[Rfam]
RNA sequence: ACACCUGUUUUUCUCCGAGCCUCCUCACCUACAGGGCAUCCCCCCAAGGAAAGAGGCCAACGGGUUUCGCGGGAAACUGCGACGCCUCCCUUUGGAAAGGAGAAUUAACGUGGCUUG
Numbered sequence: 001a002c003a004c005c006u007g008u009u010u011u012u013c014u015c016c017g018a019g020c021c022u023c024c025u026c027a028c029c030u031a032c033a034g035g036g037c038a039u040c041c042c043c044c045c046a047a048g049g050a051a052a053g054a055g056g057c058c059a060a061c062g063g064g065u066u067u068c069g070c071g072g073g074a075a076a077c078u079g080c081g082a083c084g085c086c087u088c089c090c091u092u093u094g095g096a097a098a099g100g101a102g103a104a105u106u107a108a109c110g111u112g113g114c115u116u117g
Stems, first nucleotide, its partner, number of pairs: 003111002006108001011104006019057005025051001028049002034044003062087004067082006088095002
Background
This 117-nucleotide sequence from Geotalea uraniireducens belongs to the Rfam family "Molybdenum/Tungsten riboswitch aptamer (Moco RNA motif)". The organism belongs to Geotalea uraniireducens, within Bacteria. Rfam links the family to the GO terms regulation of gene expression, tungstate binding and molybdenum ion binding.